[Rfam]
A member of the RNA family "Fluoride riboswitch aptamer (crcB RNA motif)" from Sporomusaceae bacterium FL31, 65 nucleotides long. Taxonomically the source falls in Sporomusaceae (Bacteria, Bacillati, Negativicutes, Selenomonadales).
Nucleotides: 065
Base pairs, nucleotide, nucleotide: 010025011024012023013022016056017055018054019053020052021051033046034045035044036043
Number, partner (000 for none) and nucleotide at each position: 001000a002000a003000u004000a005000a006000a007000u008000g009000c010025g011024g012023c013022g014000a015000u016056g017055g018054a019053g020052u021051u022013c023012g024011c025010c026000u027000u028000g029000a030000a031000c032000c033046c034045c035044g036043u037000g038000u039000a040000a041000a042000a043036a044035c045034g046033g047000u048000a049000a050000u051021g052020a053019c054018u055017c056016c057000u058000a059000c060000c061000a062000c063000c064000u065000u